[Rfam]
RNA sequence: AACUUGUGGAGCAGUACCCACUAUAAAAAACGAGGCGAUAUCCGAAAAGCCUUAUGAGUAGGAAUUUU
Numbered sequence: 001a002a003c004u005u006g007u008g009g010a011g012c013a014g015u016a017c018c019c020a021c022u023a024u025a026a027a028a029a030a031c032g033a034g035g036c037g038a039u040a041u042c043c044g045a046a047a048a049g050c051c052u053u054a055u056g057a058g059u060a061g062g063a064a065u066u067u068u
Stems, first nucleotide, its partner, number of pairs: 006021004034051003041062002

About this RNA:
A member of the RNA family "DUF805 RNA" from Tenacibaculum sp. MAR_2010_89, 68 nucleotides long. Clan: DUF805 clan. NCBI's taxonomy places the organism under Bacteria, Bacteroidota, Flavobacteriales, Flavobacteriaceae, Tenacibaculum. The family has 46 seed sequences and 281 matches in Rfam 15.1.